[Rfam]
The record is a 72-nucleotide RNA sequence from Alligator sinensis, which matches "mir-25 microRNA precursor family" in Rfam.
The source organism's lineage runs through Eukaryota, Gnathostomata, Teleostomi, Crocodylia and Alligator.
Gene Ontology terms of the family: miRNA-mediated post-transcriptional gene silencing and RISC complex.
For this family Rfam cites "Small RNA expression and strain specificity in the rat" (Linsen et al., BMC Genomics, 2010).
RNA sequence: GGCUGCUGCUGCAGGCUGGGGUCAAUGGCAGCUGCUGAGCUCUGCCAUUGGCCCUAGCCUGAAGUGGCAGCC
Numbered sequence: 001g002g003c004u005g006c007u008g009c010u011g012c013a014g015g016c017u018g019g020g021g022u023c024a025a026u027g028g029c030a031g032c033u034g035c036u037g038a039g040c041u042c043u044g045c046c047a048u049u050g051g052c053c054c055u056a057g058c059c060u061g062a063a064g065u066g067g068c069a070g071c072c
Stems, first nucleotide, its partner, number of pairs: 001072004006067004014059004019054005028045004034040002